This 103-nucleotide RNA sequence from Panax ginseng belongs to the Rfam family "MIR6136 microRNA precursor family". Gene Ontology terms of the family: miRNA-mediated post-transcriptional gene silencing and RISC complex.
RNA sequence: GGCGACGUUUCGGUCAUACAACCGUCGUCUAUACUUUUAGUCGACGGACAACAUAUAGCGUCGCUAAAAGUAUAAAUGAUGGUUGUAUGACCGAAACCGUCGU
Numbered sequence: 001g002g003c004g005a006c007g008u009u010u011c012g013g014u015c016a017u018a019c020a021a022c023c024g025u026c027g028u029c030u031a032u033a034c035u036u037u038u039a040g041u042c043g044a045c046g047g048a049c050a051a052c053a054u055a056u057a058g059c060g061u062c063g064c065u066a067a068a069a070g071u072a073u074a075a076a077u078g079a080u081g082g083u084u085g086u087a088u089g090a091c092c093g094a095a096a097c098c099g100u101c102g103u
Base pairs, nucleotide, nucleotide: 002103003102004101005100006099007097008096009095010094011093012092013091014090015089016088017087018086019085020084021083022082023081024080025079026078027077028076030074031073032072033071034070035069036068037067038066039065040064042063043062044061045060046059